[Rfam]
RNA sequence: GUUACGGCGGUUUUCUGAUUCGCUUGGUGCAGGUCGGGAACAGCUUUGCCGUCGAUUUUCACAUUUGUCUUCACGGUGUGAGAAACUCGUACGGUGGUUGUUGCUCUUGCCUUACAUCAACUGAAUCUGAAACGGCUGUAAAU
Numbered sequence: 001g002u003u004a005c006g007g008c009g010g011u012u013u014u015c016u017g018a019u020u021c022g023c024u025u026g027g028u029g030c031a032g033g034u035c036g037g038g039a040a041c042a043g044c045u046u047u048g049c050c051g052u053c054g055a056u057u058u059u060c061a062c063a064u065u066u067g068u069c070u071u072c073a074c075g076g077u078g079u080g081a082g083a084a085a086c087u088c089g090u091a092c093g094g095u096g097g098u099u100g101u102u103g104c105u106c107u108u109g110c111c112u113u114a115c116a117u118c119a120a121c122u123g124a125a126u127c128u129g130a131a132a133c134g135g136c137u138g139u140a141a142a143u
Stems, first nucleotide, its partner, number of pairs: 014130002018126004024120006031113003035109005041103004
Notes:
This 143-nucleotide RNA from Cynara cardunculus belongs to the Rfam family "MIR168 microRNA precursor family". The source organism's lineage runs through Eukaryota, Euphyllophyta, Spermatophyta, Asteraceae and Cynara cardunculus subsp. cardunculus. A search with the family's covariance model found it, with a score of 70 bits.